[Rfam]
RNA sequence: AACUCUGUUCGUAAGAACAAUGAGAAAAAAAUUUGUUAUUUACUCGAUAAGUACCAAUAUGCAAUGGUG
Numbered sequence: 001a002a003c004u005c006u007g008u009u010c011g012u013a014a015g016a017a018c019a020a021u022g023a024g025a026a027a028a029a030a031a032u033u034u035g036u037u038a039u040u041u042a043c044u045c046g047a048u049a050a051g052u053a054c055c056a057a058u059a060u061g062c063a064a065u066g067g068u069g
Stems, first nucleotide, its partner, number of pairs: 003022001006019005044067002051060003
Background: Plastid-clpP 5UTR RNA: a 69-nucleotide sequence from Salvia splendens. Plastid clpP is a non-coding RNA (ncRNA) recognised in plastids. It was found in the prime untranslated region (5UTR) of a protease complex subunit (clpP) in plastids, suggesting a posible cis-regulatory function. A search with the family's covariance model found it, with a score of 71 bits. The source organism's lineage runs through Eukaryota, Streptophytina, Lamiales, Salvia subgen. Calosphace and core Calosphace. The family's consensus secondary structure was predicted with LocARNA.